[Rfam]
RNA sequence: AGGGAAGCGAAAGCGCCUGGACUGUCUUCUAGUGAGGACAGUUGACGCGGGGGAGGUUGGCGAACCAUUCGGCGGGUGCCUCCCGGCGUUCUCGAUCACGCCGCAAGCAAAACUCGAAACCCAUCGGGCGACCGGUGGAACAAGAGUGCGCAGAUCGAC
Numbered sequence: 001a002g003g004g005a006a007g008c009g010a011a012a013g014c015g016c017c018u019g020g021a022c023u024g025u026c027u028u029c030u031a032g033u034g035a036g037g038a039c040a041g042u043u044g045a046c047g048c049g050g051g052g053g054a055g056g057u058u059g060g061c062g063a064a065c066c067a068u069u070c071g072g073c074g075g076g077u078g079c080c081u082c083c084c085g086g087c088g089u090u091c092u093c094g095a096u097c098a099c100g101c102c103g104c105a106a107g108c109a110a111a112a113c114u115c116g117a118a119a120c121c122c123a124u125c126g127g128g129c130g131a132c133c134g135g136u137g138g139a140a141c142a143a144g145a146g147u148g149c150g151c152a153g154a155u156c157g158a159c
Stems, first nucleotide, its partner, number of pairs: 020043008029034001052083005061071003084103006107149003113146001121138007
glmS glucosamine-6-phosphate activated ribozyme aptamer: a 159-nucleotide sequence from Alicyclobacillus acidoterrestris.
Its family is annotated with regulation of gene expression and catalytic activity in the Gene Ontology.
Pairs were carried over by alignment from the consensus structure, which is taken from published work.
The match comes from Rfam's covariance-model search (75 bits).
Lineage of the source: Bacteria > Bacillota > Caryophanales > Alicyclobacillaceae > Alicyclobacillus.